[Rfam]
RNA sequence: CAUCAUUAGCAGGGGUGUCUUAGGACUGAGAAAUGAAAUUUAUUUCAUUAACCCUUGAACCUGAUGUGGGUAAUGCCACCGUAGGGAGCUAAUUAUUUCCUUCU
Numbered sequence: 001c002a003u004c005a006u007u008a009g010c011a012g013g014g015g016u017g018u019c020u021u022a023g024g025a026c027u028g029a030g031a032a033a034u035g036a037a038a039u040u041u042a043u044u045u046c047a048u049u050a051a052c053c054c055u056u057g058a059a060c061c062u063g064a065u066g067u068g069g070g071u072a073a074u075g076c077c078a079c080c081g082u083a084g085g086g087a088g089c090u091a092a093u094u095a096u097u098u099c100c101u102u103c104u
Stems, first nucleotide, its partner, number of pairs: 006092005011055004017026003033048005060085004066079004

The family of this 104-nucleotide sequence from Natronincola peptidivorans is "TPP riboswitch aptamer (THI element)".
Vitamin B(1) in its active form thiamin pyrophosphate (TPP) is an essential coenzyme that is synthesised by coupling of pyrimidine and thiazole moieties in bacteria.
NCBI's taxonomy places the organism under Bacteria, Bacillota, Clostridia, Natronincolaceae, Natronincola.